Rfam assigns this 113-nucleotide RNA sequence from Heyndrickxia oleronia to the family "epsC RNA".
[Rfam]
Nucleotides: 113
Stems, first nucleotide, its partner, number of pairs: 001019004007034007035096004039091001041089006049065005068080004100112004
Number, partner (000 for none) and nucleotide at each position: 001019u002018g003017g004016u005000g006000a007034u008033g009032u010031c011030u012029c013028c014000u015000a016004g017003c018002c019001a020000c021000u022000a023000u024000c025000a026000a027000a028013g029012g030011a031010g032009g033008c034007a035096c036095u037094c038093g039091a040000u041089c042088a043087u044086g045085c046084u047000g048000u049065g050064g051063g052062u053061u054000g055000u056000a057000a058000a059000a060000a061053a062052a063051c064050c065049u066000u067000a068080g069079a070078c071077g072000c073000a074000a075000g076000u077071c078070g079069u080068c081000a082000a083000g084046a085045g086044u087043g088042u089041g090000u091039u092000g093038u094037g095036a096035g097000g098000g099000c100112g101111g102110g103109u104000u105000a106000a107000a108000u109103g110102c111101c112100c113000a

About this RNA
Rfam classes the family as a cis-regulatory element. A search with the family's covariance model found it, with a score of 107 bits. The source organism's lineage runs through Bacteria, Bacillati, Bacillota, Caryophanales and Heyndrickxia. The family has 30 seed sequences and 450 matches in Rfam 15.1.